[Rfam]
RNA sequence: UGCCCUUUUUCGGUUAUCAUGGUACCGAUGCUGUGUGUCUGAAGGGUACAGUACUGUGAUAACUGAAGAAUGGCA
Number, nucleotide and partner (000 for none) at each position: 001u000002g000003c000004c000005c000006u000007u000008u000009u000010u000011c065012g064013g063014u062015u061016a060017u059018c058019a057020u056021g055022g054023u053024a052025c051026c000027g049028a000029u048030g047031c046032u045033g000034u000035g000036u000037g000038u000039c000040u000041g000042a000043a000044g000045g032046g031047u030048a029049c027050a000051g025052u024053a023054c022055u021056g020057u019058g018059a017060u016061a015062a014063c013064u012065g011066a000067a000068g000069a000070a000071u000072g000073g000074c000075a000
Shown here is a 75-nucleotide RNA sequence from Cervus hanglu, a member of the family "mir-101 microRNA precursor family". The base pairs follow the family's consensus structure, which was predicted with RNAalifold. It scores 92 bits against the family's covariance model. On this family, see Mourelatos et al., Genes Dev 2002: "miRNPs: a novel class of ribonucleoproteins containing numerous microRNAs". The source organism's lineage runs through Eukaryota, Teleostomi, Dipnotetrapodomorpha, Laurasiatheria and Cervus hanglu.